[Rfam]
Overview: Rfam assigns this 78-nucleotide RNA sequence from Brassica napus to the family "small nucleolar RNA snoR117". A search with the family's covariance model found it, with a score of 78 bits.
RNA sequence: GGCCUGUGAUGUUUGAGAUUGUCCGUACCAUCUGAGAUUUCUCGUUGAUGAGUUUAAAUCCUCUAGGUUCUGAGGCUU
Numbered sequence: 001g002g003c004c005u006g007u008g009a010u011g012u013u014u015g016a017g018a019u020u021g022u023c024c025g026u027a028c029c030a031u032c033u034g035a036g037a038u039u040u041c042u043c044g045u046u047g048a049u050g051a052g053u054u055u056a057a058a059u060c061c062u063c064u065a066g067g068u069u070c071u072g073a074g075g076c077u078u
Base pairs, nucleotide, nucleotide: 001077002076003075004074
Its family is annotated with nucleolus and RNA processing in the Gene Ontology. Lineage of the source: Eukaryota > Viridiplantae > Magnoliopsida > Pentapetalae > Brassica. The base pairs follow the family's consensus structure, which was predicted with RNAalifold.